The record is a 172-nucleotide sequence from Natronobacterium lacisalsi, which matches "Sense overlapping transcript RNA 0042 (sot)" in Rfam. The source organism's lineage runs through Archaea, Methanobacteriati, Halobacteria, Natrialbaceae and Natronobacterium lacisalsi. The base pairs follow the family's consensus structure, which was predicted with RNAfold. Rfam classes the family as a small RNA.
RNA sequence: AGAUAACUCCGAGUCCUCACGGCGAGGAUAGGAGUAACGGCUGCGUGUCACAGCCCUCGACACACCUGUUCGACCGCGAGAGCGGGACAUUCAAACCGAGAGAACAGGUCGUGUCGUAGACCAGCAAAUAUCCCACCCACGGUACGGGAAGCCGCGUCCUUCAGGGCGCGGA
Numbered sequence: 001a002g003a004u005a006a007c008u009c010c011g012a013g014u015c016c017u018c019a020c021g022g023c024g025a026g027g028a029u030a031g032g033a034g035u036a037a038c039g040g041c042u043g044c045g046u047g048u049c050a051c052a053g054c055c056c057u058c059g060a061c062a063c064a065c066c067u068g069u070u071c072g073a074c075c076g077c078g079a080g081a082g083c084g085g086g087a088c089a090u091u092c093a094a095a096c097c098g099a100g101a102g103a104a105c106a107g108g109u110c111g112u113g114u115c116g117u118a119g120a121c122c123a124g125c126a127a128a129u130a131u132c133c134c135a136c137c138c139a140c141g142g143u144a145c146g147g148g149a150a151g152c153c154g155c156g157u158c159c160u161u162c163a164g165g166g167c168g169c170g171g172a
Stems, first nucleotide, its partner, number of pairs: 004037001007034004013029006039055005058116006065108007084097002131149004136142002152171008